[Rfam]
RNA: Bacterial RNase P class A
RNA sequence: UCAGGUGGUCGGAUGGCCGCUGGCGGUUUCGACCGCUGGAGGAAAGUCCGGGCUCCACGGAAACACGGUGCCGGGUAACGCCCGGCGGGGGCGACCCCAGGGAAAGUGCCACAGAAAGCAAACCGCCUGCCCGCUUCGGCCGGCUGGCAAGGGUGAAAGGGUGCGGUAAGAGCGCACCGCGCGGACGGCAACGGACGCGGCAUGGUAAACCCCACCGGGAGCAAGACCAAAUAGGGAUGGCCGGCCGCGCCGCGAGGCGGCGGCAGAUGGGUUUACGCAUCGCCAUCCGGGUAGGUCGCGCGAGGCGGUCGGCAACGAUCGUCCCAGAGGAAUGGCCAUACAGGUGCUUUCGGGCACUGGACAGAACCCGGCUUACAGACCGCCUGAUCCC
Numbered sequence: 001u002c003a004g005g006u007g008g009u010c011g012g013a014u015g016g017c018c019g020c021u022g023g024c025g026g027u028u029u030c031g032a033c034c035g036c037u038g039g040a041g042g043a044a045a046g047u048c049c050g051g052g053c054u055c056c057a058c059g060g061a062a063a064c065a066c067g068g069u070g071c072c073g074g075g076u077a078a079c080g081c082c083c084g085g086c087g088g089g090g091g092c093g094a095c096c097c098c099a100g101g102g103a104a105a106g107u108g109c110c111a112c113a114g115a116a117a118g119c120a121a122a123c124c125g126c127c128u129g130c131c132c133g134c135u136u137c138g139g140c141c142g143g144c145u146g147g148c149a150a151g152g153g154u155g156a157a158a159g160g161g162u163g164c165g166g167u168a169a170g171a172g173c174g175c176a177c178c179g180c181g182c183g184g185a186c187g188g189c190a191a192c193g194g195a196c197g198c199g200g201c202a203u204g205g206u207a208a209a210c211c212c213c214a215c216c217g218g219g220a221g222c223a224a225g226a227c228c229a230a231a232u233a234g235g236g237a238u239g240g241c242c243g244g245c246c247g248c249g250c251c252g253c254g255a256g257g258c259g260g261c262g263g264c265a266g267a268u269g270g271g272u273u274u275a276c277g278c279a280u281c282g283c284c285a286u287c288c289g290g291g292u293a294g295g296u297c298g299c300g301c302g303a304g305g306c307g308g309u310c311g312g313c314a315a316c317g318a319u320c321g322u323c324c325c326a327g328a329g330g331a332a333u334g335g336c337c338a339u340a341c342a343g344g345u346g347c348u349u350u351c352g353g354g355c356a357c358u359g360g361a362c363a364g365a366a367c368c369c370g371g372c373u374u375a376c377a378g379a380c381c382g383c384c385u386g387a388u389c390c391c
Base pairs, nucleotide, nucleotide: 001387002386003385004384005383006382007381008380009379010378011376013339014338015337016336017335018334020039021038022037023036024035025034026033027032044374045373046372048371049370050369051368052367053221054220055219056218062274063273066217067216068215069214070213071085072084073083074082075081086100087098088097089096090095101212102211106210107209108206109205110204123152124151125148126147127146129144130143131142133140134139160178161177162176163175164174165173179201180199181198182197183196186193187192225297226296227295228294235288236287237286238285239284240283266281267280268279269278304323305322306321307320308319309318310317311316